Notes:
Small nucleolar RNA SNORD16: a 98-nucleotide sequence from Merluccius polli. It scores 82 bits against the family's covariance model. Rfam classes the family as a C/D-box small nucleolar RNA. Gene Ontology terms of the family: nucleolus and RNA processing.

RNA sequence: UGCUGUGAUGGUGUAAUUUGCGUCUUACGCUGUGCCAGUGACAGAUGCCUACUGUCUAAUAUUGGCACAGAGGGCUGACGAAAAAACGACUCUGAGCA
Number, nucleotide and partner (000 for none) at each position: 001u098002g097003c096004u000005g000006u000007g000008a000009u000010g000011g000012u000013g000014u000015a000016a000017u000018u000019u000020g000021c080022g079023u078024c077025u000026u000027a000028c000029g000030c070031u069032g068033u067034g066035c000036c000037a000038g062039u061040g056041a055042c054043a053044g052045a000046u000047g000048c000049c000050u000051a000052c044053u043054g042055u041056c040057u000058a000059a000060u000061a039062u038063u000064g000065g000066c034067a033068c032069a031070g030071a000072g000073g000074g000075c000076u000077g024078a023079c022080g021081a000082a000083a000084a000085a000086a000087c000088g000089a000090c000091u000092c000093u000094g000095a000096g003097c002098a001
On this family, see Huttenhofer et al., EMBO J 2001: "RNomics: an experimental approach that identifies 201 candidates for novel, small, non-messenger RNAs in mouse".
Pairs were carried over by alignment from the consensus structure, which was predicted with PFOLD.